[Rfam]
Nucleotides: 087
Base pairs, nucleotide, nucleotide: 023077024076025075026074027073028072029071030070035068036067037066038065039064040063041062042061048059049058050057051056
Number, partner (000 for none) and nucleotide at each position: 001000g002000c003000c004000g005000g006000u007000a008000a009000a010000g011000c012000a013000c014000a015000a016000a017000u018000c019000c020000g021000c022000a023077c024076a025075c026074g027073u028072a029071u030070c031000g032000a033000c034000a035068c036067g037066u038065c039064u040063u041062c042061c043000u044000g045000g046000g047000u048059g049058c050057c051056c052000g053000c054000a055000a056051g057050g058049g059048u060000u061042g062041g063040a064039g065038g066037g067036c068035g069000g070030g071029a072028u073027g074026c075025g076024u077023g078000g079000a080000g081000g082000c083000c084000u085000a086000a087000c